[Rfam]
RNA sequence: AGCUCCUCGUAGGAACAAAGAGAAGCAUAUCUAUUAUAUAUCUGAUAAGUACCAAUAUGCAAUGGGG
Numbered sequence: 001a002g003c004u005c006c007u008c009g010u011a012g013g014a015a016c017a018a019a020g021a022g023a024a025g026c027a028u029a030u031c032u033a034u035u036a037u038a039u040a041u042c043u044g045a046u047a048a049g050u051a052c053c054a055a056u057a058u059g060c061a062a063u064g065g066g067g
Base pairs, nucleotide, nucleotide: 003020004019007014008013041066042065043064049058050057051056
RNA: Plastid-clpP 5UTR RNA
Organism: Punica granatum